[Rfam]
RNA sequence: GUAGAGGAGAUGGCGCAGGGGACACGGACUAAGACUGGGGGCCCCCGGGACCCCAACAUAUGUCCUCUUCUCCCUCCUCCCAG
Numbered sequence: 001g002u003a004g005a006g007g008a009g010a011u012g013g014c015g016c017a018g019g020g021g022a023c024a025c026g027g028a029c030u031a032a033g034a035c036u037g038g039g040g041g042c043c044c045c046c047g048g049g050a051c052c053c054c055a056a057c058a059u060a061u062g063u064c065c066u067c068u069u070c071u072c073c074c075u076c077c078u079c080c081c082a083g
Base pairs, nucleotide, nucleotide: 004079005078006077007076008075009074012073013072015070017068018067019066020065021064022063023062024061026059036055038054039053040052041051042049043048